[Rfam]
RNA sequence: GUGCUUGUAGCUCAAUUGGAUAGAGCACCAAACUACGGAUUUGGGGGUUGAGAGUUCAAAUCUUUCCAAGCAUG
Numbered sequence: 001g002u003g004c005u006u007g008u009a010g011c012u013c014a015a016u017u018g019g020a021u022a023g024a025g026c027a028c029c030a031a032a033c034u035a036c037g038g039a040u041u042u043g044g045g046g047g048u049u050g051a052g053a054g055u056u057c058a059a060a061u062c063u064u065u066c067c068a069a070g071c072a073u074g
Stems, first nucleotide, its partner, number of pairs: 001073007010026004028044005050066005
RNA: tRNA